[Rfam]
RNA sequence: CUUACCGGUGGCGAUGGGACUCGCCUGGGGCCUGCAAGGAUUCCCGAACCGCAAUUCCGCUGAUGGUUCCUAUUGACGC
Numbered sequence: 001c002u003u004a005c006c007g008g009u010g011g012c013g014a015u016g017g018g019a020c021u022c023g024c025c026u027g028g029g030g031c032c033u034g035c036a037a038g039g040a041u042u043c044c045c046g047a048a049c050c051g052c053a054a055u056u057c058c059g060c061u062g063a064u065g066g067u068u069c070c071u072a073u074u075g076a077c078g079c
Base pairs, nucleotide, nucleotide: 010025011024012023013022016070017069018068019067020066021065051060052059